[Rfam]
Rfam assigns this 170-nucleotide sequence from Firmicutes bacterium CAG:424 to the family "Clostridiales-1 RNA". Lineage of the source: Bacteria > Bacillati > Bacillota. The family's consensus secondary structure is taken from published work. Rfam classes the family as a small RNA. A search with the family's covariance model found it, with a score of 122 bits.
RNA sequence: UGAUGUCAGGGUCAAAAGGUCAUGAAUCACGUUGUGCUUGCACAUAAGUGAUUUUAUGCCUUUAUGACCCGACCCAAAAUGAGGAUAAAAGUGGGGCGCAUGCACCACGAUAUCCGAAUUUGGGGCAGGAUUGUGGGAGCACAGCGUGCGGAACAAUCCGUCAGACAUCU
Number, nucleotide and partner (000 for none) at each position: 001u000002g169003a168004u167005g166006u165007c164008a000009g000010g069011g068012u067013c066014a000015a000016a063017a062018g061019g060020u000021c058022a057023u056024g055025a054026a052027u051028c050029a049030c048031g000032u000033u044034g043035u042036g041037c000038u000039u000040g000041c036042a035043c034044a033045u000046a000047a000048g030049u029050g028051a027052u026053u000054u025055u024056a023057u022058g021059c000060c019061u018062u017063u016064a000065u000066g013067a012068c011069c010070c000071g000072a000073c125074c124075c123076a000077a121078a120079a119080u118081g000082a000083g115084g114085a113086u112087a000088a000089a000090a000091g108092u107093g106094g105095g000096g103097c102098g000099c000100a000101u000102g097103c096104a000105c094106c093107a092108c091109g000110a000111u000112a086113u085114c084115c083116g000117a000118a080119u079120u078121u077122g000123g075124g074125g073126c000127a000128g159129g158130a157131u156132u155133g154134u153135g000136g000137g000138a000139g149140c148141a147142c146143a000144g000145c000146g142147u141148g140149c139150g000151g000152a000153a134154c133155a132156a131157u130158c129159c128160g000161u000162c000163a000164g007165a006166c005167a004168u003169c002170u000